[Rfam]
RNA: Clostridiales-1 RNA
RNA sequence: CAAAAUAAGGAUUCAAGGUUACAAAUAUACAUGCUUGCAUGUAUAUAUUUGUAACUUUGAAGACAAAACAUCGAUGAGGAAAAAAGACAUACGAAUGGAAUGAGUAUGUCGAUUUCCGAAUUGAUGUAGCAUGUUGAGAGCGAAGCGGAGACAUGCGUAUUUUG
Numbered sequence: 001c002a003a004a005a006u007a008a009g010g011a012u013u014c015a016a017g018g019u020u021a022c023a024a025a026u027a028u029a030c031a032u033g034c035u036u037g038c039a040u041g042u043a044u045a046u047a048u049u050u051g052u053a054a055c056u057u058u059g060a061a062g063a064c065a066a067a068a069c070a071u072c073g074a075u076g077a078g079g080a081a082a083a084a085a086g087a088c089a090u091a092c093g094a095a096u097g098g099a100a101u102g103a104g105u106a107u108g109u110c111g112a113u114u115u116c117c118g119a120a121u122u123g124a125u126g127u128a129g130c131a132u133g134u135u136g137a138g139a140g141c142g143a144a145g146c147g148g149a150g151a152c153a154u155g156c157g158u159a160u161u162u163u164g
Stems, first nucleotide, its partner, number of pairs: 001164007010064001012062002016057013029042005068127008078117004086110007129156007140146002